Record summary:
This 51-nucleotide RNA from Nocardia camponoti belongs to the Rfam family "L31-Actinobacteria ribosomal protein leader". The source organism's lineage runs through Bacteria, Bacillati, Actinomycetota, Mycobacteriales and Nocardia.
[Rfam]
RNA sequence: UCGGUACCGGUUCACGUAUUCCACGUUUCCAGUGGUGUGCGACCCGGGACC
Numbered sequence: 001u002c003g004g005u006a007c008c009g010g011u012u013c014a015c016g017u018a019u020u021c022c023a024c025g026u027u028u029c030c031a032g033u034g035g036u037g038u039g040c041g042a043c044c045c046g047g048g049a050c051c
Base pairs, nucleotide, nucleotide: 003051004050005049007047008046009045010044015041016040017039018038019037021035022034023033